This 77-nucleotide sequence from Armatimonadetes bacterium Uphvl-Ar1 belongs to the Rfam family "c-di-GMP-I riboswitch aptamer". Rfam's curators write: GEMM was predicted in a large-scale screen for bacterial structured RNA regulatory elements.
[Rfam]
RNA sequence: CGAGUGAAACGGCACGACUGGUGCGAACCAGAUCACGCAAAGCCACGGAUCUCCCAGGAGACCGCCGGGUUACCAAA
Number, nucleotide and partner (000 for none) at each position: 001c000002g000003a000004g000005u000006g000007a000008a000009a000010c000011g000012g038013c037014a000015c000016g000017a033018c031019u030020g029021g028022u027023g000024c000025g000026a000027a022028c021029c020030a019031g018032a000033u017034c000035a000036c000037g013038c012039a000040a000041a071042g070043c069044c068045a000046c067047g066048g065049a000050u061051c060052u059053c058054c000055c000056a000057g000058g053059a052060g051061a050062c000063c000064g000065c048066c047067g046068g044069g043070u042071u041072a000073c000074c000075a000076a000077a000